[Rfam]
RNA sequence: AGAAUACGUUUCCAUUUGAGCAUUCUGAAAACGGGCUUUUCAGUAUGGGGAGCAUUUAUUAAAUUAUUAGGAGUGAAUAGUGGCCCGUAUAGCAGGCAUUAACAUUCCUGAU
Numbered sequence: 001a002g003a004a005u006a007c008g009u010u011u012c013c014a015u016u017u018g019a020g021c022a023u024u025c026u027g028a029a030a031a032c033g034g035g036c037u038u039u040u041c042a043g044u045a046u047g048g049g050g051a052g053c054a055u056u057u058a059u060u061a062a063a064u065u066a067u068u069a070g071g072a073g074u075g076a077a078u079a080g081u082g083g084c085c086c087g088u089a090u091a092g093c094a095g096g097c098a099u100u101a102a103c104a105u106u107c108c109u110g111a112u
Base pairs, nucleotide, nucleotide: 004056009051010050011049012048013047024096025095026094032087033086034085035084040111041110042109
A member of the RNA family "Alpha operon ribosome binding site" from Pantoea sp. Nvir, 112 nucleotides long. For this family Rfam cites "Translational repression of the Escherichia coli alpha operon mRNA: importance of an mRNA conformational switch and a ternary entrapment complex" (Schlax et al., J Biol Chem, 2001). The family's consensus secondary structure is taken from published work. NCBI's taxonomy places the organism under Bacteria, Pseudomonadati, Pseudomonadota, Enterobacterales, Pantoea. Gene Ontology term of the family: ribosome binding. About the family: The bacterial alpha operon ribosome binding site is surrounded by this complex pseudoknotted structure. Translation of the mRNA produces 4 ribosomal protein products, one of which (S4) acts as a translational repressor by binding to the nested pseudoknot region. The mechanism of repression is thought to involve a conformational switch in the pseudoknot region and ribosome entrapment. Rfam classes the family as a cis-regulatory element.